About this RNA:
The family of this 74-nucleotide sequence from Cryobacterium fucosi is "c-di-GMP-I riboswitch aptamer". The organism belongs to Cryobacterium, within Bacteria. The family's consensus secondary structure is taken from published work.
RNA sequence: CCGGAGGACAGGCACACGCGUCGCAAGGCGGGGUCGCAAAGGCACGGGGCCUCAAGGUCAGCCGGCCCACCGGG
Numbered sequence: 001c002c003g004g005a006g007g008a009c010a011g012g013c014a015c016a017c018g019c020g021u022c023g024c025a026a027g028g029c030g031g032g033g034u035c036g037c038a039a040a041g042g043c044a045c046g047g048g049g050c051c052u053c054a055a056g057g058u059c060a061g062c063c064g065g066c067c068c069a070c071c072g073g074g
Stems, first nucleotide, its partner, number of pairs: 012037002017032001019030004041067003045064003048059004